Rfam assigns this 67-nucleotide RNA from Allofranklinella schreckenbergeri to the family "Betaproteobacteria toxic small RNA". The base pairs follow the family's consensus structure, which was predicted with WAR. The family has 51 seed sequences and 951 matches in Rfam 15.1. From the family's description: Overexpression in amino aid rich medium attenuates growth, suggesting role in repressing amino acid intake and metabolism. The source organism's lineage runs through Bacteria, Pseudomonadota, Betaproteobacteria, Burkholderiales and Allofranklinella.
[Rfam]
Nucleotides: 067
Base pairs, nucleotide, nucleotide: 008027009026010025011024012023013022031060032059033058034057035056036055037054
Number, partner (000 for none) and nucleotide at each position: 001000u002000g003000u004000c005000u006000c007000c008027u009026c010025c011024a012023c013022c014000u015000c016000u017000c018000c019000a020000a021000c022013g023012g024011u025010g026009g027008a028000u029000u030000c031060g032059c033058c034057c035056c036055g037054c038000u039000c040000c041000c042000u043000u044000u045000c046000a047000c048000c049000a050000g051000g052000c053000u054037g055036c056035g057034g058033g059032g060031c061000u062000u063000u064000u065000u066000u067000c